[Rfam]
RNA sequence: CGUUUCCUUGCUGGAGAGAGGCGGCGCAUCGCGUUUGGUUCGCAGCGCCGUCCACCGAAGGAGCAAACCCCGAUCGCGGGGCGAAUCUCUCAGGUAAAGCGGACAGCAGGGGUGGC
Numbered sequence: 001c002g003u004u005u006c007c008u009u010g011c012u013g014g015a016g017a018g019a020g021g022c023g024g025c026g027c028a029u030c031g032c033g034u035u036u037g038g039u040u041c042g043c044a045g046c047g048c049c050g051u052c053c054a055c056c057g058a059a060g061g062a063g064c065a066a067a068c069c070c071c072g073a074u075c076g077c078g079g080g081g082c083g084a085a086u087c088u089c090u091c092a093g094g095u096a097a098a099g100c101g102g103a104c105a106g107c108a109g110g111g112g113u114g115g116c
Base pairs, nucleotide, nucleotide: 006111007110008109009108010107011106012105013104020052021051022050023049024048025047026046027045054095055094056093057091058090061089062088063087068081069080070079